This 106-nucleotide sequence from Callithrix jacchus belongs to the Rfam family "Small nucleolar RNA SNORD67". It is annotated as a C/D-box small nucleolar RNA. NCBI's taxonomy places the organism under Eukaryota, Gnathostomata, Sarcopterygii, Callitrichinae, Callithrix. It scores 58 bits against the family's covariance model. Rfam describes the family as follows. snoRNA HBII-166 belongs to the C/D family of snoRNAs. The literature on the family includes a 2001 paper in EMBO J by Huttenhofer et al., "RNomics: an experimental approach that identifies 201 candidates for novel, small, non-messenger RNAs in mouse". Its family is annotated with RNA processing and nucleolus in the Gene Ontology.
RNA sequence: UGUAAAAGUGAUGAGUUGUACCCUCAUAGAGUCAUAGCACUGGGGGAUGCAGGCACUGUGUAGUACUUUCCUGAGGAAAGAAAUGCACAGGGGCCACUCACUCAUC
Number, nucleotide and partner (000 for none) at each position: 001u000002g000003u000004a105005a000006a000007a102008g101009u000010g000011a000012u000013g000014a000015g000016u000017u000018g000019u000020a000021c000022c000023c063024u062025c000026a059027u058028a057029g056030a000031g054032u053033c052034a000035u000036a000037g050038c049039a048040c000041u046042g000043g000044g000045g000046g041047a000048u039049g038050c037051a000052g033053g032054c031055a000056c029057u028058g027059u026060g000061u000062a024063g023064u000065a000066c000067u000068u000069u000070c000071c000072u000073g000074a000075g000076g000077a000078a000079a000080g000081a000082a000083a000084u000085g000086c000087a000088c000089a000090g000091g000092g000093g000094c000095c000096a000097c000098u000099c000100a000101c008102u007103c000104a000105u004106c000